[Rfam]
RNA: speF leader
Organism: Methylobrevis albus
RNA sequence: UCCCGGCUCUCCAAAGGCCGGGGUCACUAAAGAGGCAACUACUCCUUGCCGGACGUGCGGUACGGGUCUCCCGUUCCAAUCGAUGGCUGUCGAACGCGCUGGCGCGCUCCUACGAGCGCGACAAGCGGUCGCAAUCUCAU
Number, nucleotide and partner (000 for none) at each position: 001u023002c022003c021004c020005g019006g018007c017008u016009c000010u000011c000012c000013a000014a000015a000016g008017g007018c006019c005020g004021g003022g002023g001024u000025c000026a000027c000028u000029a000030a000031a000032g000033a000034g050035g049036c048037a047038a000039c000040u000041a000042c000043u000044c000045c000046u000047u037048g036049c035050c034051g000052g000053a000054c000055g000056u000057g000058c000059g000060g000061u000062a000063c000064g000065g000066g000067u000068c000069u000070c000071c000072c000073g000074u000075u000076c000077c000078a000079a000080u000081c000082g000083a000084u000085g000086g000087c000088u000089g000090u000091c000092g000093a000094a000095c000096g000097c000098g000099c000100u000101g000102g000103c000104g000105c000106g000107c000108u000109c000110c000111u000112a000113c000114g000115a000116g000117c000118g000119c131120g130121a129122c128123a000124a000125g000126c000127g000128g122129u121130c120131g119132c000133a000134a000135u000136c000137u000138c000139a000140u000